[Rfam]
RNA: mir-2807 microRNA precursor family
RNA sequence: UUAACUCAAAUUUGUAUGGUGUUGGAACAUUUGCGUACGUUUGCCGUUAGGGGCGCUGUUCCAACUGCAUACAAAUUUAAGGUC
Numbered sequence: 001u002u003a004a005c006u007c008a009a010a011u012u013u014g015u016a017u018g019g020u021g022u023u024g025g026a027a028c029a030u031u032u033g034c035g036u037a038c039g040u041u042u043g044c045c046g047u048u049a050g051g052g053g054c055g056c057u058g059u060u061c062c063a064a065c066u067g068c069a070u071a072c073a074a075a076u077u078u079a080a081g082g083u084c
Stems, first nucleotide, its partner, number of pairs: 008078009018068001021065009034052001036050001039047002